Shown here is an 88-nucleotide RNA sequence from Hibiscus syriacus, a member of the family "Small nucleolar RNA R16". The match comes from Rfam's covariance-model search (53 bits). The literature on the family includes a 2002 paper in Mol Cell Biol by Galardi et al., "Purified box C/D snoRNPs are able to reproduce site-specific 2'-O-methylation of target RNA in vitro". Rfam links the family to the GO terms RNA processing and nucleolus. The family has 18 seed sequences and 884 matches in Rfam 15.1.
RNA sequence: GGUGGCAAAAGAUGAAUGUUUAUAUUAUCCUACACUCUGAAAAAACCGUGUGGAUUUUAAUUUCGCUUAUUGAUAUUCUGAUGCCAUU
Numbered sequence: 001g002g003u004g005g006c007a008a009a010a011g012a013u014g015a016a017u018g019u020u021u022a023u024a025u026u027a028u029c030c031u032a033c034a035c036u037c038u039g040a041a042a043a044a045a046c047c048g049u050g051u052g053g054a055u056u057u058u059a060a061u062u063u064c065g066c067u068u069a070u071u072g073a074u075a076u077u078c079u080g081a082u083g084c085c086a087u088u
Stems, first nucleotide, its partner, number of pairs: 003086005